[Rfam]
RNA sequence: CAGAUUUGCACUUCAAAAAUAGUGAUUUCUUAAGGUGAAGAAAUCUCUUUGUAAAUGUCCUAAAGAAAUAUAGUGGCUUUCUGUUCACCCUUUGCAAGUGGAAAAGGUAGAUCGUUCCUCUGCUGAUAUGU
Number, nucleotide and partner (000 for none) at each position: 001c000002a058003g000004a056005u055006u054007u053008g052009c051010a000011c000012u000013u000014c000015a000016a000017a000018a000019a000020u000021a046022g045023u000024g000025a000026u040027u039028u038029c037030u000031u000032a000033a000034g000035g000036u000037g029038a028039a027040g026041a000042a000043a000044u000045c022046u021047c000048u000049u000050u000051g009052u008053a007054a006055a005056u004057g000058u002059c000060c000061u000062a000063a000064a000065g000066a000067a000068a000069u000070a000071u125072a124073g123074u122075g121076g120077c000078u000079u000080u000081c000082u000083g000084u000085u000086c000087a000088c000089c000090c000091u104092u103093u102094g000095c000096a000097a000098g000099u000100g000101g000102a093103a092104a091105a000106g000107g000108u000109a000110g000111a000112u000113c000114g000115u000116u000117c000118c000119u000120c076121u075122g074123c073124u072125g071126a000127u000128a000129u000130g000131u000
Shown here is a 131-nucleotide sequence from Pipistrellus kuhlii, a member of the family "Small Cajal body specific RNA 24". The source organism's lineage runs through Eukaryota, Chordata, Euteleostomi, Sarcopterygii and Pipistrellus. It scores 80 bits against the family's covariance model. The base pairs follow the family's consensus structure, which was predicted with RNAfold. From the family's description: scaRNAs are a specific class of small nuclear RNAs which localise to the Cajal bodies and guide the modification of RNA polymerase II transcribed spliceosomal RNAs U1, U2, U4, U5 and U12. ACA12 belongs to the H/ACA box class of guide RNAs as it has the predicted hairpin-hinge-hairpin-tail structure,the conserved H/ACA-box motifs and is found associated with GAR1.